[Rfam]
RNA sequence: CCCAGCGAUAAAUCGCUGGGCUAUUGUCAAAAGUCCCUCCGGGACA
Numbered sequence: 001c002c003c004a005g006c007g008a009u010a011a012a013u014c015g016c017u018g019g020g021c022u023a024u025u026g027u028c029a030a031a032a033g034u035c036c037c038u039c040c041g042g043g044a045c046a
Stems, first nucleotide, its partner, number of pairs: 001020008033045005
RNA: Acido-Lenti-1 RNA
Organism: Adhaeretor mobilis